Repression of heat shock gene expression (ROSE) element: a 97-nucleotide RNA from Mesorhizobium sp. 8. On this family, see Balsiger et al., J Bacteriol 2004: "Replicon-specific regulation of small heat shock genes in Agrobacterium tumefaciens". Pairs were carried over by alignment from the consensus structure, which is taken from published work. This family represents a 5' UTR cis-regulatory element found in heat shock mRNAs and is known as the ROSE (repression of heat shock gene expression) element. The ROSE element is a negative regulator of heat shock gene expression. The secondary structure is thought to be regulated by temperature. This regulation blocks access to the ribosome binding site under normal conditions. Rfam links the family to the GO terms response to temperature stimulus and regulation of translation. By type it is an RNA thermoregulator.
[Rfam]
RNA sequence: GCCGGCGCCCUUUUAGGGUCGGCAAGGUCAAGGAGCGCUCAUCCUUGGCGCUCCUCGUACCCAUGUUGCUCAGCAAUGGAGGAUAUGGCUAUGAGAA
Numbered sequence: 001g002c003c004g005g006c007g008c009c010c011u012u013u014u015a016g017g018g019u020c021g022g023c024a025a026g027g028u029c030a031a032g033g034a035g036c037g038c039u040c041a042u043c044c045u046u047g048g049c050g051c052u053c054c055u056c057g058u059a060c061c062c063a064u065g066u067u068g069c070u071c072a073g074c075a076a077u078g079g080a081g082g083a084u085a086u087g088g089c090u091a092u093g094a095g096a097a
Stems, first nucleotide, its partner, number of pairs: 001023006008017002032053001034052006041045001054095006061088007069081003